About this RNA
mir-210 microRNA precursor family: a 97-nucleotide RNA from Homarus americanus. For this family Rfam cites "The developmental miRNA profiles of zebrafish as determined by small RNA cloning" (Chen et al., Genes Dev, 2005). The match comes from Rfam's covariance-model search (72 bits). The family's consensus secondary structure was predicted with WAR.

RNA sequence: ACGAAUUUCACUGUAGCUGCUGGACACUGCACAAGAUUAGCCAUCUGUGACUCUUGUGCGUGUGACAGCGGCUAUUGUGGAAAAUCAUGCCCGCCCA
Numbered sequence: 001a002c003g004a005a006u007u008u009c010a011c012u013g014u015a016g017c018u019g020c021u022g023g024a025c026a027c028u029g030c031a032c033a034a035g036a037u038u039a040g041c042c043a044u045c046u047g048u049g050a051c052u053c054u055u056g057u058g059c060g061u062g063u064g065a066c067a068g069c070g071g072c073u074a075u076u077g078u079g080g081a082a083a084a085u086c087a088u089g090c091c092c093g094c095c096c097a
Stems, first nucleotide, its partner, number of pairs: 006082006015073008025062002028060006035053002